[Rfam]
RNA: Pyrrolysine insertion sequence mtbB
RNA sequence: UAGGUGGGUGUGGGUGAUCCCUACGGGAUGCCCAUCGCCCACGGGGUCGCUGCCGGGAUGGGUGGCAUUCGGACGGCCGGAGAUCUGGUCGCCCGCAUGC
Numbered sequence: 001u002a003g004g005u006g007g008g009u010g011u012g013g014g015u016g017a018u019c020c021c022u023a024c025g026g027g028a029u030g031c032c033c034a035u036c037g038c039c040c041a042c043g044g045g046g047u048c049g050c051u052g053c054c055g056g057g058a059u060g061g062g063u064g065g066c067a068u069u070c071g072g073a074c075g076g077c078c079g080g081a082g083a084u085c086u087g088g089u090c091g092c093c094c095g096c097a098u099g100c
Base pairs, nucleotide, nucleotide: 007038010035011034012033013032014031015030016029018026019025074091075090076089077088079086080085